The family of this 86-nucleotide RNA sequence from Folsomia candida is "mir-184 microRNA precursor family". Taxonomically the source falls in Folsomia (Eukaryota, Opisthokonta, Ecdysozoa, Proisotominae). The family has 66 seed sequences and 948 matches in Rfam 15.1.

[Rfam]
RNA sequence: UCCAUCUCAAUUCCUUAUCAUUCACCAGUCCGGUGCGUUUUAUGUUUUAUCAACUGGACGGAGAACUGAUAAGGGCUUGAGCAUGG
Numbered sequence: 001u002c003c004a005u006c007u008c009a010a011u012u013c014c015u016u017a018u019c020a021u022u023c024a025c026c027a028g029u030c031c032g033g034u035g036c037g038u039u040u041u042a043u044g045u046u047u048u049a050u051c052a053a054c055u056g057g058a059c060g061g062a063g064a065a066c067u068g069a070u071a072a073g074g075g076c077u078u079g080a081g082c083a084u085g086g
Base pairs, nucleotide, nucleotide: 012075013074014073015072016071017070018069019068020067021065022064023063025061026060030057031056